[Rfam]
RNA sequence: CCCACGGGCGUACGACGUCAACUACUAAAGAACCAAGAGAAAAAACCCAACCCAACCCCACCCACCCGGUGGGAACCUGACGGGUCCCCGGGUGCCUGGGCGGGUUUGGCAGCCUCCGCGAGGUCCGUCACUCGCACGGGUGACAUUUCCCAACUCAGCUCGCUUUUGCGUGGGUUGCCCGGCAUAUGCUCACGCCAGACCACGUCCCACACACACUUCGGCCCCCGGCCGGGACUGCAAUCCCGAUCGAGGGCCUAGCCAACAAGGAAGAAGUAGCUUCCCG
Numbered sequence: 001c002c003c004a005c006g007g008g009c010g011u012a013c014g015a016c017g018u019c020a021a022c023u024a025c026u027a028a029a030g031a032a033c034c035a036a037g038a039g040a041a042a043a044a045a046c047c048c049a050a051c052c053c054a055a056c057c058c059c060a061c062c063c064a065c066c067c068g069g070u071g072g073g074a075a076c077c078u079g080a081c082g083g084g085u086c087c088c089c090g091g092g093u094g095c096c097u098g099g100g101c102g103g104g105u106u107u108g109g110c111a112g113c114c115u116c117c118g119c120g121a122g123g124u125c126c127g128u129c130a131c132u133c134g135c136a137c138g139g140g141u142g143a144c145a146u147u148u149c150c151c152a153a154c155u156c157a158g159c160u161c162g163c164u165u166u167u168g169c170g171u172g173g174g175u176u177g178c179c180c181g182g183c184a185u186a187u188g189c190u191c192a193c194g195c196c197a198g199a200c201c202a203c204g205u206c207c208c209a210c211a212c213a214c215a216c217u218u219c220g221g222c223c224c225c226c227g228g229c230c231g232g233g234a235c236u237g238c239a240a241u242c243c244c245g246a247u248c249g250a251g252g253g254c255c256u257a258g259c260c261a262a263c264a265a266g267g268a269a270g271a272a273g274u275a276g277c278u279u280c281c282c283g
Stems, first nucleotide, its partner, number of pairs: 007116002010113001128143006158195002160192001162190001220255005226249002231244004266281005
The record is a 283-nucleotide RNA sequence from Streptomyces sp. PTY087I2, which matches "Streptomyces sRNA 4677" in Rfam. Rfam 15.1 lists 563 matches to the family in 285 species. A reference for the family is Hindra et al. (2014), "Complex intra-operonic dynamics mediated by a small RNA in Streptomyces coelicolor", PLoS One. The pairing is the family consensus, mapped onto this sequence. Rfam's curators write: Located in the intergenic region between anti-sigma factor SCO4677 gene and a putative regulatory protein gene SCO4676. scr4677 expression requires the SCO4677 activity and scr4677 sRNA itself seem to affect the levels of the SCO4676-associated transcripts. It is annotated as a small RNA.